About this RNA: Rfam assigns this 114-nucleotide RNA sequence from Candidatus Palibaumannia cicadellinicola to the family "Ribosomal S15 leader". Rfam describes the family as follows. The E. coli Ribosomal S15 gene 5' UTR can form two alternative structures. One that is a series of three hairpins, The other includes a pseudoknot. This structure causes translational regulation of the S15 protein. The alignment of this family contains only the final two hairpins which are conserved in other species, and also includes the complete region that forms the alternate structures. By type it is a cis-regulatory leader. Pairs were carried over by alignment from the consensus structure, which is taken from published work. NCBI's taxonomy places the organism under Bacteria, Pseudomonadati, Pseudomonadota, Gammaproteobacteria, Candidatus Palibaumannia. The literature on the family includes a 1996 paper in Biochimie by Benard et al., "Pseudoknot and translational control in the expression of the S15 ribosomal protein".
RNA sequence: UAACGAUAAAUUAGAGAUAAAUAUCAAGCUAUUUUAGCUAACAUUUGGAGUUUUAUCAUGUCUCUAAGUAUUAAUAAAAAAGAAAAAAUAAUUUCUGAUUUUGGCCGUUGUGCG
Numbered sequence: 001u002a003a004c005g006a007u008a009a010a011u012u013a014g015a016g017a018u019a020a021a022u023a024u025c026a027a028g029c030u031a032u033u034u035u036a037g038c039u040a041a042c043a044u045u046u047g048g049a050g051u052u053u054u055a056u057c058a059u060g061u062c063u064c065u066a067a068g069u070a071u072u073a074a075u076a077a078a079a080a081a082g083a084a085a086a087a088a089u090a091a092u093u094u095c096u097g098a099u100u101u102u103g104g105c106c107g108u109u110g111u112g113c114g
Base pairs, nucleotide, nucleotide: 005022007020009018044068045067046066047065048064049063050062